[Rfam]
RNA sequence: UGCAACACUUAUCAAAUGUGUAGUUCCCCACACAGGAGCACUUUACCAUAUUCUGAACUC
Numbered sequence: 001u002g003c004a005a006c007a008c009u010u011a012u013c014a015a016a017u018g019u020g021u022a023g024u025u026c027c028c029c030a031c032a033c034a035g036g037a038g039c040a041c042u043u044u045a046c047c048a049u050a051u052u053c054u055g056a057a058c059u060c
Base pairs, nucleotide, nucleotide: 018043020041021040023039024038025037026036027035